[Rfam]
RNA sequence: AUGGAAGUGAGGAUUUUUUUCCCAAGCUGAUCGACUAAUGAUUAUAUUGUGCGCAAAUGUAAUUCUCUCUUAAGAGAAUUCAAGGCAGAAAUCAGGUCCAU
Numbered sequence: 001a002u003g004g005a006a007g008u009g010a011g012g013a014u015u016u017u018u019u020u021c022c023c024a025a026g027c028u029g030a031u032c033g034a035c036u037a038a039u040g041a042u043u044a045u046a047u048u049g050u051g052c053g054c055a056a057a058u059g060u061a062a063u064u065c066u067c068u069c070u071u072a073a074g075a076g077a078a079u080u081c082a083a084g085g086c087a088g089a090a091a092u093c094a095g096g097u098c099c100a101u
Base pairs, nucleotide, nucleotide: 001101002100003099004098005097